[Rfam]
Nucleotides: 082
Stems, first nucleotide, its partner, number of pairs: 003079002011036002016031006034068001039075004044071003047066003
Number, partner (000 for none) and nucleotide at each position: 001000a002000a003079c004078g005000a006000c007000a008000a009000a010000g011036g012035c013000a014000a015000a016031c017030u018029u019028g020027g021026u022000g023000u024000a025000a026021a027020u028019c029018a030017a031016g032000g033000a034068c035012g036011c037000a038000a039075a040074g041073c042072c043000a044071c045070g046069g047066g048065u049064c050000u051000u052000c053000c054000g055000u056000a057000a058000g059000c060000u061000g062000a063000a064049g065048a066047u067000a068034g069046c070045c071044g072042g073041g074040u075039u076000a077000c078004c079003g080000u081000a082000a
This 82-nucleotide RNA sequence from Desulfosporosinus cupriresistens belongs to the Rfam family "c-di-GMP-I-GGC riboswitch aptamer". The literature on the family includes a 2009 paper in Nat Struct Mol Biol by Smith et al., "Structural basis of ligand binding by a c-di-GMP riboswitch". Clan: c-di-GMP_I riboswitch clan.